[Rfam]
The family of this 121-nucleotide sequence from Alteromonadales bacterium alter-6D02 is "Ribosomal S15 leader".
The base pairs follow the family's consensus structure, which is taken from published work.
On this family, see Benard et al., Biochimie 1996: "Pseudoknot and translational control in the expression of the S15 ribosomal protein".
It is annotated as a cis-regulatory leader.
Taxonomically the source falls in Alteromonadales (Bacteria, Pseudomonadati, Pseudomonadota, Gammaproteobacteria).
Gene Ontology term of the family: regulation of translation, ncRNA-mediated.
The E. coli Ribosomal S15 gene 5' UTR can form two alternative structures. One that is a series of three hairpins, The other includes a pseudoknot. This structure causes translational regulation of the S15 protein. The alignment of this family contains only the final two hairpins which are conserved in other species, and also includes the complete region that forms the alternate structures.

RNA sequence: GAAUGUAGCUGAAUUAGUGAUCGGCUACAUAUUUCUUUAAAUCUUAUAAACAUUGGAGUUUAUUAUGUCACUAAGCGCUACUCAAACAGCUGAAAUCAUCGCAGAAUUCGGCCGUGAUGCA
Numbered sequence: 001g002a003a004u005g006u007a008g009c010u011g012a013a014u015u016a017g018u019g020a021u022c023g024g025c026u027a028c029a030u031a032u033u034u035c036u037u038u039a040a041a042u043c044u045u046a047u048a049a050a051c052a053u054u055g056g057a058g059u060u061u062a063u064u065a066u067g068u069c070a071c072u073a074a075g076c077g078c079u080a081c082u083c084a085a086a087c088a089g090c091u092g093a094a095a096u097c098a099u100c101g102c103a104g105a106a107u108u109c110g111g112c113c114g115u116g117a118u119g120c121a
Stems, first nucleotide, its partner, number of pairs: 007026006053074004058069001
Dot-bracket structure: ......((((((........))))))..........................((((.(..........).))))...............................................